[Rfam]
Notes:
Rfam assigns this 89-nucleotide RNA from Flavonifractor sp. An135 to the family "c-di-GMP-I riboswitch aptamer". Rfam describes the family as follows. GEMM was predicted in a large-scale screen for bacterial structured RNA regulatory elements. Taxonomically the source falls in Flavonifractor (Bacteria, Bacillota, Clostridia, Eubacteriales). The match comes from Rfam's covariance-model search (67 bits).

RNA sequence: AAUGGAAAAGAGCAAACCAUGUGAAAGCAUGGGACGCAAAGCUGGAAGGCUAACGCGGCGACUGCCGCUAUGCUGGUUCGGCCGCCCAA
Dot-bracket structure: ...........((...((((((....))))))...))...(((.((((((....((((......))))...)))..)))))).......